[Rfam]
RNA sequence: UAUUUUUGAGGUGAGAAAGGCUCCUCAUGCGCUAAAUCUAGUAAUCAGAGAUGCAGGAUACGCCGCCCUGCCAAAAAAU
Numbered sequence: 001u002a003u004u005u006u007u008g009a010g011g012u013g014a015g016a017a018a019g020g021c022u023c024c025u026c027a028u029g030c031g032c033u034a035a036a037u038c039u040a041g042u043a044a045u046c047a048g049a050g051a052u053g054c055a056g057g058a059u060a061c062g063c064c065g066c067c068c069u070g071c072c073a074a075a076a077a078a079u
Base pairs, nucleotide, nucleotide: 003077004076005075006074007073008072011028012027013026014025015024019064020063021062030048031042032041033040034039053071054070055069056068057067